[Rfam]
A member of the RNA family "L31-Gammaproteobacteria ribosomal protein leader" from Pasteurella multocida, 51 nucleotides long. The family is grouped with related families in Rfam's "Ribosomal Protein L31 Leader clan". On this family, see Eckert and Weinberg, BMC Microbiol 2020: "Discovery of 20 novel ribosomal leader candidates in bacteria and archaea". The source organism's lineage runs through Bacteria, Pseudomonadati, Pseudomonadota, Pasteurella and Pasteurella multocida. Rfam classes the family as a cis-regulatory leader. The family's consensus secondary structure is taken from published work.
RNA sequence: CAUGCGGUGUCAGUCUAAGUACUUGAUAGCGGCAUGGCUUCAAAUUGAGGU
Numbered sequence: 001c002a003u004g005c006g007g008u009g010u011c012a013g014u015c016u017a018a019g020u021a022c023u024u025g026a027u028a029g030c031g032g033c034a035u036g037g038c039u040u041c042a043a044a045u046u047g048a049g050g051u
Base pairs, nucleotide, nucleotide: 001036002035003034004033005032007030008029011025012024013023014021